Shown here is a 67-nucleotide RNA from Xylophilus rhododendri, a member of the family "Xanthine riboswitch aptamer (NMT1 RNA)". On this family, see Yu and Breaker, RNA 2020: "A bacterial riboswitch class senses xanthine and uric acid to regulate genes associated with purine oxidation". The organism belongs to Xylophilus, within Bacteria. The match comes from Rfam's covariance-model search (50 bits). Gene Ontology term of the family: purine nucleobase binding.
[Rfam]
RNA sequence: GGCAGGAGUAGAAGCGUUCAGCGGUACCGCAUCCCCCUUGCGGCGCCGCCCGGAAAUUGCUCUUGAA
Numbered sequence: 001g002g003c004a005g006g007a008g009u010a011g012a013a014g015c016g017u018u019c020a021g022c023g024g025u026a027c028c029g030c031a032u033c034c035c036c037c038u039u040g041c042g043g044c045g046c047c048g049c050c051c052g053g054a055a056a057u058u059g060c061u062c063u064u065g066a067a
Stems, first nucleotide, its partner, number of pairs: 005063006015052001018054002021049005027043005